[Rfam]
RNA sequence: CCGUCGGUCCCUCGCGACGCUAGAUCGAAAAUCCCGCCAGGGCCGGAAGGCAGCAACGGUAUCGAUUGAUGCGGGCGCCGAGGUCAACCGGCGGGGGC
Numbered sequence: 001c002c003g004u005c006g007g008u009c010c011c012u013c014g015c016g017a018c019g020c021u022a023g024a025u026c027g028a029a030a031a032u033c034c035c036g037c038c039a040g041g042g043c044c045g046g047a048a049g050g051c052a053g054c055a056a057c058g059g060u061a062u063c064g065a066u067u068g069a070u071g072c073g074g075g076c077g078c079c080g081a082g083g084u085c086a087a088c089c090g091g092c093g094g095g096g097g098c
Base pairs, nucleotide, nucleotide: 004091005090006089007088008087010083011082012081013080014079015075018073019072020071023067024066025065026064027063028062034059035058036057042051043050044049

Record summary:
The family of this 98-nucleotide sequence from Xanthomonas oryzae is "Bacterial small signal recognition particle RNA". A reference for the family is Regalia et al. (2002), "Prediction of signal recognition particle RNA genes", Nucleic Acids Res. The family's RNA type in Rfam is non-coding RNA gene. Its Rfam clan is "SRP clan". Pairs were carried over by alignment from the consensus structure, which is taken from published work. Rfam's curators put it in the seed alignment.